The record is a 103-nucleotide RNA sequence from Longilinea arvoryzae, which matches "c-di-GMP-II-GAG riboswitch aptamer" in Rfam. Gene Ontology terms of the family: regulation of gene expression and cyclic-di-GMP binding. A reference for the family is Weinberg et al. (2017), "Bioinformatic analysis of riboswitch structures uncovers variant classes with altered ligand specificity", Proc Natl Acad Sci U S A. A search with the family's covariance model found it, with a score of 53 bits.
RNA sequence: AGUUCAUGUGGAGGCGUUGAUUCGAGACCUGAAUAAUGGUCGCUUAUCCUCGAUAGGGGGAGGAGGUCUCGAUGAGCCAAUAGCGAAACCGCCCACUCGAUGA
Number, nucleotide and partner (000 for none) at each position: 001a000002g000003u000004u100005c099006a000007u000008g096009u095010g094011g093012a000013g078014g077015c076016g000017u000018u000019g000020a000021u000022u072023c071024g070025a069026g068027a067028c066029c065030u000031g000032a000033a000034u000035a000036a000037u000038g090039g089040u086041c085042g084043c083044u082045u000046a000047u000048c000049c000050u000051c000052g000053a000054u000055a000056g000057g000058g000059g000060g000061a000062g000063g000064a000065g029066g028067u027068c026069u025070c024071g023072a022073u000074g000075a000076g015077c014078c013079a000080a000081u000082a044083g043084c042085g041086a040087a000088a000089c039090c038091g000092c000093c011094c010095a009096c008097u000098c000099g005100a004101u000102g000103a000